This 72-nucleotide sequence from Teichococcus wenyumeiae belongs to the Rfam family "Makes More Granules Regulator RNA (mmgR)". The family's RNA type in Rfam is small RNA. Gene Ontology terms of the family: response to nitrogen compound, DNA-templated transcription, termination and protein binding. Lineage of the source: Bacteria > Pseudomonadati > Pseudomonadota > Alphaproteobacteria > Roseomonas. On this family, see Sobrero and Valverde, Arch Microbiol 2011: "Evidences of autoregulation of hfq expression in Sinorhizobium meliloti strain 2011". It scores 60 bits against the family's covariance model.

RNA sequence: CGUUGUUGUCUUUCUUGGACGUUUCCUCCCUAAACUCGGCGGUGCUUCGGCACCGCCUUUUUUUUGCCCAUG
Numbered sequence: 001c002g003u004u005g006u007u008g009u010c011u012u013u014c015u016u017g018g019a020c021g022u023u024u025c026c027u028c029c030c031u032a033a034a035c036u037c038g039g040c041g042g043u044g045c046u047u048c049g050g051c052a053c054c055g056c057c058u059u060u061u062u063u064u065u066g067c068c069c070a071u072g
Stems, first nucleotide, its partner, number of pairs: 008020004038057008